[Rfam]
RNA: SAM (S-adenosyl methionine) riboswitch aptamer
RNA sequence: GGUCAUGAGUGUCAGCGACAAGCCCCAGCUCGCUGGACGGCAACCCUCCACACGCGGUGGGGUGCCCUGGGUGAUGACCCGGCGGUUGGCCGUACGUUAGCCACACGCAAGCGCGGCCC
Numbered sequence: 001g002g003u004c005a006u007g008a009g010u011g012u013c014a015g016c017g018a019c020a021a022g023c024c025c026c027a028g029c030u031c032g033c034u035g036g037a038c039g040g041c042a043a044c045c046c047u048c049c050a051c052a053c054g055c056g057g058u059g060g061g062g063u064g065c066c067c068u069g070g071g072u073g074a075u076g077a078c079c080c081g082g083c084g085g086u087u088g089g090c091c092g093u094a095c096g097u098u099a100g101c102c103a104c105a106c107g108c109a110a111g112c113g114c115g116g117c118c119c
Base pairs, nucleotide, nucleotide: 001079002078003077004076009038012036013035014034015033016032021030022029039066040065041064044062045061046060048057049056082108083107084106087103088102089101090100